[Rfam]
The family of this 87-nucleotide RNA sequence from Cottoperca gobio is "Small nucleolar RNA snR60/Z15/Z230/Z193/J17". The base pairs follow the family's consensus structure. A reference for the family is Lowe and Eddy (1999), "A computational screen for methylation guide snoRNAs in yeast", Science. Its family is annotated with nucleolus and RNA processing in the Gene Ontology.
RNA sequence: UUGAUACAAUGAUGAUACCAUAGUUCAGCGGAUUAAACCAUGAAGAAUAAAUAGCACUUUGUCUUUCGCUCCUAUCUGAUGUAUCGA
Numbered sequence: 001u002u003g004a005u006a007c008a009a010u011g012a013u014g015a016u017a018c019c020a021u022a023g024u025u026c027a028g029c030g031g032a033u034u035a036a037a038c039c040a041u042g043a044a045g046a047a048u049a050a051a052u053a054g055c056a057c058u059u060u061g062u063c064u065u066u067c068g069c070u071c072c073u074a075u076c077u078g079a080u081g082u083a084u085c086g087a
Stems, first nucleotide, its partner, number of pairs: 004084005
Dot-bracket structure: ...(((((.......................................................................)))))...